[Rfam]
RNA sequence: CUGACGUGCAAAUCGAUCGUCAAAUUUGCGUAUAGGGGCGAAAGACUAAUCGAACCAUUAAGGAAUAGACCAAGCUCUAGGUGGUUGAGAAACCCCUUGGGGUAUUAGUCCUGGAGACAGGGCGACAUUGUCAAAUUGUUCGGGGACCACCUGUUAAAUUACACGCUACCGCAACAGUGCUGAAAGGCCUGUGAGCACUAGAGGUAACGCCUCUAGGGAUGGUAAUAACGCGUGUAUAGGGUAUAUCCGCAGCGAAGUUCUAAGGCCUCACGGCUACGAAUCGCGUUCACAGACUAGACGGCAAUGGGCUCCUCGCGGGGCUUAAGAUAUAGUCGAACCCCUCAGAGAUGAGGAU
Numbered sequence: 001c002u003g004a005c006g007u008g009c010a011a012a013u014c015g016a017u018c019g020u021c022a023a024a025u026u027u028g029c030g031u032a033u034a035g036g037g038g039c040g041a042a043a044g045a046c047u048a049a050u051c052g053a054a055c056c057a058u059u060a061a062g063g064a065a066u067a068g069a070c071c072a073a074g075c076u077c078u079a080g081g082u083g084g085u086u087g088a089g090a091a092a093c094c095c096c097u098u099g100g101g102g103u104a105u106u107a108g109u110c111c112u113g114g115a116g117a118c119a120g121g122g123c124g125a126c127a128u129u130g131u132c133a134a135a136u137u138g139u140u141c142g143g144g145g146a147c148c149a150c151c152u153g154u155u156a157a158a159u160u161a162c163a164c165g166c167u168a169c170c171g172c173a174a175c176a177g178u179g180c181u182g183a184a185a186g187g188c189c190u191g192u193g194a195g196c197a198c199u200a201g202a203g204g205u206a207a208c209g210c211c212u213c214u215a216g217g218g219a220u221g222g223u224a225a226u227a228a229c230g231c232g233u234g235u236a237u238a239g240g241g242u243a244u245a246u247c248c249g250c251a252g253c254g255a256a257g258u259u260c261u262a263a264g265g266c267c268u269c270a271c272g273g274c275u276a277c278g279a280a281u282c283g284c285g286u287u288c289a290c291a292g293a294c295u296a297g298a299c300g301g302c303a304a305u306g307g308g309c310u311c312c313u314c315g316c317g318g319g320g321c322u323u324a325a326g327a328u329a330u331a332g333u334c335g336a337a338c339c340c341c342u343c344a345g346a347g348a349u350g351a352g353g354a355u
Stems, first nucleotide, its partner, number of pairs: 002022005126306005132300001137251002141249004149242004252286002257281004265274003290335001292334005308321005340353005
The family of this 355-nucleotide RNA from Botrytis porri is "Group I catalytic intron". Group I catalytic introns are large self-splicing ribozymes. They catalyse their own excision from mRNA, tRNA and rRNA precursors in a wide range of organisms. The core secondary structure consists of 9 paired regions (P1-P9). Rfam 15.1 lists 5,602 matches to the family in 1,395 species. The source organism's lineage runs through Eukaryota, Pezizomycotina, Helotiales, Sclerotiniaceae and Botrytis.